[Rfam]
RNA sequence: GCUCUCUGAUUUGUGUUGAGGCUGAAGAACUCGGAUAGUUUGUGUUGUCAUCAGCUUCGGCUCUGUACUGUGAGUUGGGAGUUAAAUAACAGCACGAGAUUG
Dot-bracket structure: ........................................(((((((.....((((((.((((........))))..))))))......)))))))......
Numbered sequence: 001g002c003u004c005u006c007u008g009a010u011u012u013g014u015g016u017u018g019a020g021g022c023u024g025a026a027g028a029a030c031u032c033g034g035a036u037a038g039u040u041u042g043u044g045u046u047g048u049c050a051u052c053a054g055c056u057u058c059g060g061c062u063c064u065g066u067a068c069u070g071u072g073a074g075u076u077g078g079g080a081g082u083u084a085a086a087u088a089a090c091a092g093c094a095c096g097a098g099a100u101u102g
Stems, first nucleotide, its partner, number of pairs: 041096007053083006060075004
Shown here is a 102-nucleotide RNA sequence from Zea mays, a member of the family "Small nucleolar RNA snoR97". Its family is annotated with nucleolus and RNA processing in the Gene Ontology. The source organism's lineage runs through Eukaryota, Embryophyta, Magnoliopsida, Panicoideae and Zea. For this family Rfam cites "Experimental RNomics: identification of 140 candidates for small non-messenger RNAs in the plant Arabidopsis thaliana" (Marker et al., Curr Biol, 2002). The family's RNA type in Rfam is H/ACA-box small nucleolar RNA. The base pairs follow the family's consensus structure, which was predicted with WAR.